[Rfam]
RNA sequence: CGAGUCGGUCAGGCGAUCGCUUCUCGCGGCUUUCGGGCUCGCGGGGGGAGGAAAGUCCGGGCUCCACAGGGCAGGGUGCCAGGUAACGCCUGGGGGGCGAGAGCCUACGGAAAGUGCAGCAGAAAGGAAACCGCCCAAAGAAGGGGUUCGCCCCUUUUUGAGAACCGCUAAAAGGGGUCUGACCCCUUUUAUGGUUGGGUAAGGGUGAAAAGGUGCGGUAAGAGCGCACCGCGCGGCUGGUAACAGGCGUGGCGAUGGUAAACCCCACCCGGAGCAAGACCAAAUAGGAAUCCGUAAGCCGUGGCCCGCGGUGGAUUCGGGUAGGUCGCUUCAGGCAGCUGGCGACAGCUGUCGCAGAUGAAUGGUCGUCCACGACAGAACCCGGCUUAUCGACCGACUCCUUGA
Number, nucleotide and partner (000 for none) at each position: 001c000002g400003a399004g398005u397006c396007g395008g394009u393010c392011a390012g370013g369014c368015g367016a366017u365018c364019g000020c048021u047022u046023c045024u044025c043026g042027c041028g040029g000030c000031u000032u000033u000034c000035g000036g000037g000038c000039u000040c028041g027042c026043g025044g024045g023046g022047g021048g020049a000050g000051g000052a000053a388054a387055g386056u000057c385058c384059g383060g382061g381062c274063u273064c272065c271066a000067c000068a000069g307070g306071g305072c304073a000074g270075g269076g268077u267078g266079c093080c092081a091082g090083g089084u000085a000086a000087c000088g000089c083090c082091u081092g080093g079094g108095g106096g105097g104098c103099g000100a000101g000102a000103g098104c097105c096106u095107a000108c094109g265110g264111a000112a000113a000114g263115u262116g259117c258118a000119g000120c000121a000122g000123a000124a000125a000126g000127g000128a000129a000130a000131c204132c203133g200134c199135c198136c197137a196138a195139a000140g000141a192142a000143g000144g000145g000146g000147u000148u000149c000150g000151c000152c000153c000154c000155u000156u000157u000158u000159u000160g000161a000162g000163a000164a000165c000166c000167g000168c000169u000170a000171a000172a000173a000174g000175g000176g000177g000178u000179c000180u000181g000182a000183c000184c000185c000186c000187u000188u000189u000190u000191a000192u141193g000194g000195u138196u137197g136198g135199g134200u133201a000202a000203g132204g131205g000206u000207g000208a000209a000210a000211a000212g230213g229214u228215g227216c226217g225218g000219u000220a000221a000222g000223a000224g000225c217226g216227c215228a214229c213230c212231g253232c251233g250234c249235g248236g000237c246238u245239g244240g000241u000242a000243a000244c239245a238246g237247g000248c235249g234250u233251g232252g000253c231254g000255a000256u000257g000258g117259u116260a000261a000262a115263c114264c110265c109266c078267a077268c076269c075270c074271g065272g064273a063274g062275c000276a000277a000278g327279a326280c325281c324282a000283a000284a000285u000286a000287g000288g318289a317290a316291u315292c314293c313294g000295u000296a000297a000298g312299c311300c310301g309302u308303g000304g072305c071306c070307c069308g302309c301310g300311g299312u298313g293314g292315a291316u290317u289318c288319g000320g000321g000322u000323a000324g281325g280326u279327c278328g000329c000330u000331u000332c000333a000334g353335g352336c351337a350338g349339c348340u347341g346342g000343c000344g000345a000346c341347a340348g339349c338350u337351g336352u335353c334354g000355c000356a000357g000358a000359u000360g000361a000362a000363u000364g018365g017366u016367c015368g014369u013370c012371c000372a000373c000374g000375a000376c000377a000378g000379a000380a000381c061382c060383c059384g058385g057386c055387u054388u053389a000390u011391c000392g010393a009394c008395c007396g006397a005398c004399u003400c002401c000402u000403u000404g000405a000
RNA: Bacterial RNase P class A
Organism: Pseudohalioglobus lutimaris